[Rfam]
RNA: Eukaryotic large subunit ribosomal RNA, nucleotides 1 to 434
RNA sequence: UGACCUCAGAUCAGACGUGGCGACCCGCUGAAUUUAAGCAUAUUAGUCAGCGGAGGAAAAGAAACUAACCAGGAUUCCCUCAGUAAUGGCGAGUGAACAGGGAAGAGCCCAGCGCCGAAUCCCUGCCCCACACCGGGGCGUAGGAGAUGUGGCUUAUGGAAGACCCGCUCUCCGGCACCGCUCGAGGGGGGCCCAAGUCCUUCUGAUCGAGGCCCAGCCCGCAGAUGGUGUGAGGCCGGUAGCGGCCCCUGGCGCACCGGGCCCCAGGUCUUCCCGGAGUUGGGUUGCUUGGGAAUACAGCCCAAAGCGGGUGGUAAACUCCAACUAAGGCUAAAUACCGGCACAAGACUGAUAGCCAACAAGUACCGUAAGGGAAAGUUGAAAAGAACUUUGAAGAGAGAGUUCAAGAGGGCGUGAAACAGUUAAGAGGUAAA
Numbered sequence: 001u002g003a004c005c006u007c008a009g010a011u012c013a014g015a016c017g018u019g020g021c022g023a024c025c026c027g028c029u030g031a032a033u034u035u036a037a038g039c040a041u042a043u044u045a046g047u048c049a050g051c052g053g054a055g056g057a058a059a060a061g062a063a064a065c066u067a068a069c070c071a072g073g074a075u076u077c078c079c080u081c082a083g084u085a086a087u088g089g090c091g092a093g094u095g096a097a098c099a100g101g102g103a104a105g106a107g108c109c110c111a112g113c114g115c116c117g118a119a120u121c122c123c124u125g126c127c128c129c130a131c132a133c134c135g136g137g138g139c140g141u142a143g144g145a146g147a148u149g150u151g152g153c154u155u156a157u158g159g160a161a162g163a164c165c166c167g168c169u170c171u172c173c174g175g176c177a178c179c180g181c182u183c184g185a186g187g188g189g190g191g192c193c194c195a196a197g198u199c200c201u202u203c204u205g206a207u208c209g210a211g212g213c214c215c216a217g218c219c220c221g222c223a224g225a226u227g228g229u230g231u232g233a234g235g236c237c238g239g240u241a242g243c244g245g246c247c248c249c250u251g252g253c254g255c256a257c258c259g260g261g262c263c264c265c266a267g268g269u270c271u272u273c274c275c276g277g278a279g280u281u282g283g284g285u286u287g288c289u290u291g292g293g294a295a296u297a298c299a300g301c302c303c304a305a306a307g308c309g310g311g312u313g314g315u316a317a318a319c320u321c322c323a324a325c326u327a328a329g330g331c332u333a334a335a336u337a338c339c340g341g342c343a344c345a346a347g348a349c350u351g352a353u354a355g356c357c358a359a360c361a362a363g364u365a366c367c368g369u370a371a372g373g374g375a376a377a378g379u380u381g382a383a384a385a386g387a388a389c390u391u392u393g394a395a396g397a398g399a400g401a402g403u404u405c406a407a408g409a410g411g412g413c414g415u416g417a418a419a420c421a422g423u424u425a426a427g428a429g430g431u432a433a434a
Stems, first nucleotide, its partner, number of pairs: 024055001025053005035042002065072002076103005086094002106332004114153004119148003123144001124140005159273006168267002178260003182256001183254002187250007197213001199212004220224001227237002282303006309326002312323002366373002389400004